Source information
A member of the RNA family "PyrR binding site" from Clostridium perfringens, 118 nucleotides long. The family's RNA type in Rfam is cis-regulatory element. The match comes from Rfam's covariance-model search (60 bits). The family's consensus secondary structure is taken from published work. This family represents the PyrR binding site and terminator structure. This RNA structure is found upstream of a variety of genes involved in pyrimidine biosynthesis and transport. The alignment also includes a portion of the antiterminator structure.
[Rfam]
RNA sequence: AUAACCUUUAAAUUUGAUCCAGAGAGGUCAAUAAGGAAGUUAUAUAGUUGAAUUAUAAUCGUAAAAGAUUUAUUUAUACGUGAAAAGUCUUCCUUAUCUUAGGAAGACUUUUUUUAAU
Numbered sequence: 001a002u003a004a005c006c007u008u009u010a011a012a013u014u015u016g017a018u019c020c021a022g023a024g025a026g027g028u029c030a031a032u033a034a035g036g037a038a039g040u041u042a043u044a045u046a047g048u049u050g051a052a053u054u055a056u057a058a059u060c061g062u063a064a065a066a067g068a069u070u071u072a073u074u075u076a077u078a079c080g081u082g083a084a085a086a087g088u089c090u091u092c093c094u095u096a097u098c099u100u101a102g103g104a105a106g107a108c109u110u111u112u113u114u115u116a117a118u
Stems, first nucleotide, its partner, number of pairs: 005036004014031006043078005049072006056065001082113013